[Rfam]
RNA sequence: GCGCCGGGACGACCCGGCGCACCGAAACACAUGGGCAGGACGACCUGC
Numbered sequence: 001g002c003g004c005c006g007g008g009a010c011g012a013c014c015c016g017g018c019g020c021a022c023c024g025a026a027a028c029a030c031a032u033g034g035g036c037a038g039g040a041c042g043a044c045c046u047g048c
Stems, first nucleotide, its partner, number of pairs: 001020008035048005